[Rfam]
RNA sequence: GUGAGCCAGGAAUAGGAAGAAAGUAUCUAAUAGCACUAGGGAUAGGAACAUGAAGGAAAUCAUAAUCUAUUCCAUCUCUGGCAUUGGAGAUGGAGAUUUGGUUUAAUGUUUUCCUGAUGCCUCCUAUUCCUAAGGCUCUUAGGUUUUCCUUCCCUUUCCUAAUGGCU
Numbered sequence: 001g002u003g004a005g006c007c008a009g010g011a012a013u014a015g016g017a018a019g020a021a022a023g024u025a026u027c028u029a030a031u032a033g034c035a036c037u038a039g040g041g042a043u044a045g046g047a048a049c050a051u052g053a054a055g056g057a058a059a060u061c062a063u064a065a066u067c068u069a070u071u072c073c074a075u076c077u078c079u080g081g082c083a084u085u086g087g088a089g090a091u092g093g094a095g096a097u098u099u100g101g102u103u104u105a106a107u108g109u110u111u112u113c114c115u116g117a118u119g120c121c122u123c124c125u126a127u128u129c130c131u132a133a134g135g136c137u138c139u140u141a142g143g144u145u146u147u148c149c150u151u152c153c154c155u156u157u158c159c160u161a162a163u164g165g166c167u
Stems, first nucleotide, its partner, number of pairs: 009158004015152003022147002026143005032137003037132011049119003053115001055114005061108001
RNA: MIR2118 microRNA precursor family